The family of this 59-nucleotide sequence from Tupaia belangeri is "mir-221 microRNA precursor family".

RNA sequence: CUCAGUAGCCAGUGUAGAUCCUGUCUUUUGUAAUCAGCAGCUACAUCUGGCUACUGGGU
Numbered sequence: 001c002u003c004a005g006u007a008g009c010c011a012g013u014g015u016a017g018a019u020c021c022u023g024u025c026u027u028u029u030g031u032a033a034u035c036a037g038c039a040g041c042u043a044c045a046u047c048u049g050g051c052u053a054c055u056g057g058g059u
Stems, first nucleotide, its partner, number of pairs: 002057006009050003012046006021040004
Annotation: It is one of the family's seed sequences. The family has 72 seed sequences and 1,797 matches in Rfam 15.1. Pairs were carried over by alignment from the consensus structure, which was predicted with RNAalifold. Gene Ontology terms of the family: miRNA-mediated post-transcriptional gene silencing and RISC complex. The literature on the family includes a 2008 paper in J Virol by Yao et al., "MicroRNA profile of Marek's disease virus-transformed T-cell line MSB-1: predominance of virus-encoded microRNAs".